[Rfam]
Rfam assigns this 84-nucleotide RNA from Rhodamnia argentea to the family "Small nucleolar RNA Z159/U59". On this family, see Chen et al., Nucleic Acids Res 2003: "The high diversity of snoRNAs in plants: identification and comparative study of 120 snoRNA genes from Oryza sativa". Its family is annotated with nucleolus and RNA processing in the Gene Ontology. NCBI's taxonomy places the organism under Eukaryota, Tracheophyta, Mesangiospermae, Pentapetalae, Rhodamnia. The family has 10 seed sequences and 1,401 matches in Rfam 15.1.

RNA sequence: GCCUCUUGGGAUGAUUGUAACAAUACUUUCGUUCUUCCGAGAUGUUUCAUGCGGAAAUAUAUUGGAGACCUGAACUGAAGAGGC
Numbered sequence: 001g002c003c004u005c006u007u008g009g010g011a012u013g014a015u016u017g018u019a020a021c022a023a024u025a026c027u028u029u030c031g032u033u034c035u036u037c038c039g040a041g042a043u044g045u046u047u048c049a050u051g052c053g054g055a056a057a058u059a060u061a062u063u064g065g066a067g068a069c070c071u072g073a074a075c076u077g078a079a080g081a082g083g084c
Stems, first nucleotide, its partner, number of pairs: 003082004